[Rfam]
RNA sequence: AUUUGAAAAAGGCAAAAAUGUCGAAAGACGUUGACGCAAAGCUGCAGGUCUACGGUUUUACAAACUAUGACGGCUGGGUUGCUAAG
Numbered sequence: 001a002u003u004u005g006a007a008a009a010a011g012g013c014a015a016a017a018a019u020g021u022c023g024a025a026a027g028a029c030g031u032u033g034a035c036g037c038a039a040a041g042c043u044g045c046a047g048g049u050c051u052a053c054g055g056u057u058u059u060a061c062a063a064a065c066u067a068u069g070a071c072g073g074c075u076g077g078g079u080u081g082c083u084a085a086g
Stems, first nucleotide, its partner, number of pairs: 012037002017032006040080004045076003048071003055065004

Source information
Shown here is an 86-nucleotide RNA sequence from Paenisporosarcina antarctica, a member of the family "c-di-GMP-I riboswitch aptamer". It scores 78 bits against the family's covariance model. The source organism's lineage runs through Bacteria, Bacillati, Bacillota, Caryophanaceae and Paenisporosarcina. Gene Ontology term of the family: cyclic-di-GMP binding. Pairs were carried over by alignment from the consensus structure, which is taken from published work.